Shown here is an 81-nucleotide RNA sequence from Thalassotalea piscium, a member of the family "antisense RNA of dnaA mRNA". The organism belongs to Thalassotalea, within Bacteria. Its family is annotated with regulation of mRNA stability in the Gene Ontology. The literature on the family includes a 2013 paper in PLoS One by Dadzie et al., "Identification and characterization of a cis-encoded antisense RNA associated with the replication process of Salmonella enterica serovar Typhi". A search with the family's covariance model found it, with a score of 54 bits.
[Rfam]
RNA sequence: UUUUGCAUUAGGUUUAUUGAGUAGAAUACCGUUACCUACUGCAUGUAACAAAUGUGUUUUACCUAAACCAGUACCACCAUA
Numbered sequence: 001u002u003u004u005g006c007a008u009u010a011g012g013u014u015u016a017u018u019g020a021g022u023a024g025a026a027u028a029c030c031g032u033u034a035c036c037u038a039c040u041g042c043a044u045g046u047a048a049c050a051a052a053u054g055u056g057u058u059u060u061a062c063c064u065a066a067a068c069c070a071g072u073a074c075c076a077c078c079a080u081a
Base pairs, nucleotide, nucleotide: 004043005042006041007040009038010037011036012035013034016032018031019030021029022028053076054075056074057073061072062071